[Rfam]
The family of this 111-nucleotide RNA sequence from Vibrio ruber is "Qrr RNA". From the family's description: This family represents a set of small RNAs (the Qrr RNAs) that are thought to be involved in the regulation of quorum sensing in Vibrio species. Gene Ontology term of the family: quorum sensing. By type it is a small RNA. Taxonomically the source falls in Vibrio ruber (Bacteria, Pseudomonadota, Vibrionales, Vibrio). Pairs were carried over by alignment from the consensus structure, which is taken from published work. The family has 30 seed sequences and 148 matches in Rfam 15.1.
RNA sequence: UGACCCUUCUUAAGCCGAGGGUCACCUAGCCAACUGACGUUGUUAGUGAAUGAAUACUUGUUCACAAUAAAUUACGGCCAGUCACACAAUAUUGUGGCUGGCUAUUUUUUU
Numbered sequence: 001u002g003a004c005c006c007u008u009c010u011u012a013a014g015c016c017g018a019g020g021g022u023c024a025c026c027u028a029g030c031c032a033a034c035u036g037a038c039g040u041u042g043u044u045a046g047u048g049a050a051u052g053a054a055u056a057c058u059u060g061u062u063c064a065c066a067a068u069a070a071a072u073u074a075c076g077g078c079c080a081g082u083c084a085c086a087c088a089a090u091a092u093u094g095u096g097g098c099u100g101g102c103u104a105u106u107u108u109u110u111u
Base pairs, nucleotide, nucleotide: 001024002023003022004021005020006019041074042073046065047064048063049062050061051060052059078101079100080099081098082097083096084095085094